[Rfam]
RNA sequence: GAUGGAGAGUUUAAGGCCAUAGCAGAAGUGCUCAUGGUGUGGCCCUGGCAGAUCCCAAUGAAUCUGCAAAUUCUGCU
Numbered sequence: 001g002a003u004g005g006a007g008a009g010u011u012u013a014a015g016g017c018c019a020u021a022g023c024a025g026a027a028g029u030g031c032u033c034a035u036g037g038u039g040u041g042g043c044c045c046u047g048g049c050a051g052a053u054c055c056c057a058a059u060g061a062a063u064c065u066g067c068a069a070a071u072u073c074u075g076c077u
Base pairs, nucleotide, nucleotide: 015044016043017042018041021077022076023075024074025073026072027071028040029039030038049066050065051064052063053062055060
RNA: Mammalian CPEB3 ribozyme